[Rfam]
RNA sequence: CUUGCAAAUCCAAUCACCUCAAUUGGAGAUGAGAAGCAAUUUCCCAUUGGUAGCAAAUGGUUAUCCAUUAAGCGGGGGAAUAGUAUU
Numbered sequence: 001c002u003u004g005c006a007a008a009u010c011c012a013a014u015c016a017c018c019u020c021a022a023u024u025g026g027a028g029a030u031g032a033g034a035a036g037c038a039a040u041u042u043c044c045c046a047u048u049g050g051u052a053g054c055a056a057a058u059g060g061u062u063a064u065c066c067a068u069u070a071a072g073c074g075g076g077g078g079a080a081u082a083g084u085a086u087u
Base pairs, nucleotide, nucleotide: 042077043076044075045074046068047067049065050064051063052062053061054060
Dot-bracket structure: .........................................((((((.((((((.....)))))).)).....))))..........